[Rfam]
RNA sequence: UUGUUUUAGGGAUGAAUAAGUCCCUGAUAAUUGAAUUCAUUCAUCUCUUUGUCAUCAUCACAAUGUUUGUGUUUUGAUAAUCAUUAUCGGAUGGUACAAUU
Numbered sequence: 001u002u003g004u005u006u007u008a009g010g011g012a013u014g015a016a017u018a019a020g021u022c023c024c025u026g027a028u029a030a031u032u033g034a035a036u037u038c039a040u041u042c043a044u045c046u047c048u049u050u051g052u053c054a055u056c057a058u059c060a061c062a063a064u065g066u067u068u069g070u071g072u073u074u075u076g077a078u079a080a081u082c083a084u085u086a087u088c089g090g091a092u093g094g095u096a097c098a099a100u101u
Base pairs, nucleotide, nucleotide: 037094038093039092040091041090051081052080054078055077056076057075
The record is a 101-nucleotide RNA sequence from Capsicum annuum, which matches "Small nucleolar RNA snoR99" in Rfam. Lineage of the source: Eukaryota > Streptophyta > Tracheophyta > Solanales > Capsicum. Rfam links the family to the GO terms RNA processing and nucleolus. The family's RNA type in Rfam is H/ACA-box small nucleolar RNA. For this family Rfam cites "Experimental RNomics: identification of 140 candidates for small non-messenger RNAs in the plant Arabidopsis thaliana" (Marker et al., Curr Biol, 2002).